[Rfam]
RNA sequence: UUGCAUGCUCUUCCACGGCUUUCUUGAACUUCUUUUUCUCUCUUUGUGUUAGUAAAUGAAUUAAAGAGGAUGAAGGUCAAGAAAGCCGUGGGAAAACAUGAACG
Numbered sequence: 001u002u003g004c005a006u007g008c009u010c011u012u013c014c015a016c017g018g019c020u021u022u023c024u025u026g027a028a029c030u031u032c033u034u035u036u037u038c039u040c041u042c043u044u045u046g047u048g049u050u051a052g053u054a055a056a057u058g059a060a061u062u063a064a065a066g067a068g069g070a071u072g073a074a075g076g077u078c079a080a081g082a083a084a085g086c087c088g089u090g091g092g093a094a095a096a097c098a099u100g101a102a103c104g
Stems, first nucleotide, its partner, number of pairs: 004100004013091003017087006024080004029075004
RNA: MIR396 microRNA precursor family
Organism: Gossypium armourianum